p27 cis-regulatory element: a 59-nucleotide RNA sequence from Microtus ochrogaster. NCBI's taxonomy places the organism under Eukaryota, Opisthokonta, Deuterostomia, Eutheria, Microtus. Gene Ontology term of the family: regulation of translation. The family's consensus secondary structure was predicted with PFOLD. This family represents a structured G/C rich element located in the 5' UTR of p27 mRNA. This element contributes to cell-cycle regulated translation and when deleted leads to a 50% drop in regulation.
RNA sequence: CCACCUUAAGAGCGCGCUCGCCAGCCUGGGCGGAGCGGCAACCGGCGCCGCGACCAAUG
Numbered sequence: 001c002c003a004c005c006u007u008a009a010g011a012g013c014g015c016g017c018u019c020g021c022c023a024g025c026c027u028g029g030g031c032g033g034a035g036c037g038g039c040a041a042c043c044g045g046c047g048c049c050g051c052g053a054c055c056a057a058u059g
Base pairs, nucleotide, nucleotide: 009027010026012025013024014021015020030051031050032049033048036044037043038042